[Rfam]
RNA sequence: UUCACGCCUACCUUCGACAUCAAAGCCUUGUUGCCCAAAUAAAAAUAGCCCCAGCAGAUUUGCUGGGGCUU
Numbered sequence: 001u002u003c004a005c006g007c008c009u010a011c012c013u014u015c016g017a018c019a020u021c022a023a024a025g026c027c028u029u030g031u032u033g034c035c036c037a038a039a040u041a042a043a044a045a046u047a048g049c050c051c052c053a054g055c056a057g058a059u060u061u062g063c064u065g066g067g068g069c070u071u
Stems, first nucleotide, its partner, number of pairs: 016035001018033002021030001047070010
Shown here is a 71-nucleotide sequence from Spirosoma profusum, a member of the family "isrJ Hfq binding RNA". The base pairs follow the family's consensus structure, which was predicted with RNAalifold. On this family, see Padalon-Brauch et al., Nucleic Acids Res 2008: "Small RNAs encoded within genetic islands of Salmonella typhimurium show host-induced expression and role in virulence".